[Rfam]
A member of the RNA family "Burkholderia sRNA Bp1_Cand871_SIPHT" from Paraburkholderia phenazinium, 229 nucleotides long.

RNA sequence: UCGCCCACAAUGCCUUUCAACGGUUUCAACACGGAUGUGGCUGGGUGCGUGGUGUGAGCGGAUACGAUGCACUUGCCGGUCGGCAGCACGCCGAAGCCCUGUAAAGGGGCAUCCCUGUUGGCGCCGUGGUCAACGCGUAAAGCGUCUGCCCAGUCGGUUCCUCCAAUGGUCUCCUCGCGCUAACCCCGUAGCGUGUGGUUUUUAGCGGGCUCCAGGCCCGCUUUUUUUU
Numbered sequence: 001u002c003g004c005c006c007a008c009a010a011u012g013c014c015u016u017u018c019a020a021c022g023g024u025u026u027c028a029a030c031a032c033g034g035a036u037g038u039g040g041c042u043g044g045g046u047g048c049g050u051g052g053u054g055u056g057a058g059c060g061g062a063u064a065c066g067a068u069g070c071a072c073u074u075g076c077c078g079g080u081c082g083g084c085a086g087c088a089c090g091c092c093g094a095a096g097c098c099c100u101g102u103a104a105a106g107g108g109g110c111a112u113c114c115c116u117g118u119u120g121g122c123g124c125c126g127u128g129g130u131c132a133a134c135g136c137g138u139a140a141a142g143c144g145u146c147u148g149c150c151c152a153g154u155c156g157g158u159u160c161c162u163c164c165a166a167u168g169g170u171c172u173c174c175u176c177g178c179g180c181u182a183a184c185c186c187c188g189u190a191g192c193g194u195g196u197g198g199u200u201u202u203u204a205g206c207g208g209g210c211u212c213c214a215g216g217c218c219c220g221c222u223u224u225u226u227u228u229u
Stems, first nucleotide, its partner, number of pairs: 005169003020127005026121006033114006039077003045072006052065004080094005097108004130152001134148001173198002176195007204222008
A reference for the family is Khoo et al. (2012), "Computational discovery and RT-PCR validation of novel Burkholderia conserved and Burkholderia pseudomallei unique sRNAs", BMC Genomics. It is annotated as a small RNA. Gene Ontology term of the family: bacterial biofilm matrix.